[Rfam]
RNA sequence: GCCCGGAUGACCCUGCUCUGGGAUGCAGGCUUCAAACCUGUAGCUGUCUAGUGACAGAGUGGUUCAUUUCCACCUUUCGGGU
Numbered sequence: 001g002c003c004c005g006g007a008u009g010a011c012c013c014u015g016c017u018c019u020g021g022g023a024u025g026c027a028g029g030c031u032u033c034a035a036a037c038c039u040g041u042a043g044c045u046g047u048c049u050a051g052u053g054a055c056a057g058a059g060u061g062g063u064u065c066a067u068u069u070c071c072a073c074c075u076u077u078c079g080g081g082u
Stems, first nucleotide, its partner, number of pairs: 001082007009074001011022003024042006044057005059073004